[Rfam]
RNA sequence: UGCAAAAGCAAUUGUAAGUCGCUUUGGAUAAAAGCGUCAGCUAAAUGACAUGUA
Numbered sequence: 001u002g003c004a005a006a007a008g009c010a011a012u013u014g015u016a017a018g019u020c021g022c023u024u025u026g027g028a029u030a031a032a033a034g035c036g037u038c039a040g041c042u043a044a045a046u047g048a049c050a051u052g053u054a
Base pairs, nucleotide, nucleotide: 013043014041015040020036021035022034023033024032025031